[Rfam]
Rfam assigns this 81-nucleotide RNA sequence from Crocuta crocuta to the family "mir-224 microRNA precursor family". It scores 76 bits against the family's covariance model. The source organism's lineage runs through Eukaryota, Vertebrata, Gnathostomata, Mammalia and Crocuta. Rfam links the family to the GO terms miRNA-mediated post-transcriptional gene silencing, RISC complex and Wnt signaling pathway. Pairs were carried over by alignment from the consensus structure, which was predicted with RNAalifold.

RNA sequence: GGGCUUUCCAGUCACUAGUGAUUCUGUUUAGUAGAUGGCUGUGCAUUGUUUCAAAAUGGUUGCCUAGUGGCUACAAAACCC
Numbered sequence: 001g002g003g004c005u006u007u008c009c010a011g012u013c014a015c016u017a018g019u020g021a022u023u024c025u026g027u028u029u030a031g032u033a034g035a036u037g038g039c040u041g042u043g044c045a046u047u048g049u050u051u052c053a054a055a056a057u058g059g060u061u062g063c064c065u066a067g068u069g070g071c072u073a074c075a076a077a078a079c080c081c
Stems, first nucleotide, its partner, number of pairs: 001081003005077003010072009020063001024059006031052001033051006